RNA sequence: ACAAUAGAUAGAGAGCUUCCUUGAGUCCAUUCACAGGUUGUGAUAUGAUCCAAUUAGCCUCCGACUCAUUCAUCCAAAUACCGAGUCACAAAAAUUGAAACUAACUCGUUAAAUGAAUGUAUGAUGCGGUAGACAAAUUGGAUCAUUGAUUCUCUCUGAUUGGACUGAAGGGAGCUCCCUCUCCUUUAGGU
Numbered sequence: 001a002c003a004a005u006a007g008a009u010a011g012a013g014a015g016c017u018u019c020c021u022u023g024a025g026u027c028c029a030u031u032c033a034c035a036g037g038u039u040g041u042g043a044u045a046u047g048a049u050c051c052a053a054u055u056a057g058c059c060u061c062c063g064a065c066u067c068a069u070u071c072a073u074c075c076a077a078a079u080a081c082c083g084a085g086u087c088a089c090a091a092a093a094a095u096u097g098a099a100a101c102u103a104a105c106u107c108g109u110u111a112a113a114u115g116a117a118u119g120u121a122u123g124a125u126g127c128g129g130u131a132g133a134c135a136a137a138u139u140g141g142a143u144c145a146u147u148g149a150u151u152c153u154c155u156c157u158g159a160u161u162g163g164a165c166u167g168a169a170g171g172g173a174g175c176u177c178c179c180u181c182u183c184c185u186u187u188a189g190g191u
Stems, first nucleotide, its partner, number of pairs: 013177008024166006036154001058132001061129003067123003075115001
Rfam assigns this 191-nucleotide RNA sequence from Raphanus sativus to the family "MIR159 microRNA precursor family". For this family Rfam cites "Computational identification of plant microRNAs and their targets, including a stress-induced miRNA" (Jones-Rhoades and Bartel, Mol Cell, 2004). Taxonomically the source falls in Raphanus (Eukaryota, Viridiplantae, Streptophytina, Brassicaceae). The match comes from Rfam's covariance-model search (144 bits). Rfam links the family to the GO terms RISC complex and miRNA-mediated post-transcriptional gene silencing.